[Rfam]
RNA sequence: GUAGUCGGGCCGGUGUGUAGACAUUUUCGUUCGAACGGGGUAACCCGUGAGAAAUUGCCUCCUAAAGGCCCGCUCUCUCCUGCAUCGUUGGCUUUUUUAGGGCCGACUUUAACAGAACGGCCACUCGGGC
Dot-bracket structure: ..((..(((((.......((.((.((((......((((......))))..)))).)).))......))))).)).............(((((((.....)))))))........................
Numbered sequence: 001g002u003a004g005u006c007g008g009g010c011c012g013g014u015g016u017g018u019a020g021a022c023a024u025u026u027u028c029g030u031u032c033g034a035a036c037g038g039g040g041u042a043a044c045c046c047g048u049g050a051g052a053a054a055u056u057g058c059c060u061c062c063u064a065a066a067g068g069c070c071c072g073c074u075c076u077c078u079c080c081u082g083c084a085u086c087g088u089u090g091g092c093u094u095u096u097u098u099a100g101g102g103c104c105g106a107c108u109u110u111a112a113c114a115g116a117a118c119g120g121c122c123a124c125u126c127g128g129g130c
Stems, first nucleotide, its partner, number of pairs: 003074002007071005019060002022057002025054004035048004088106007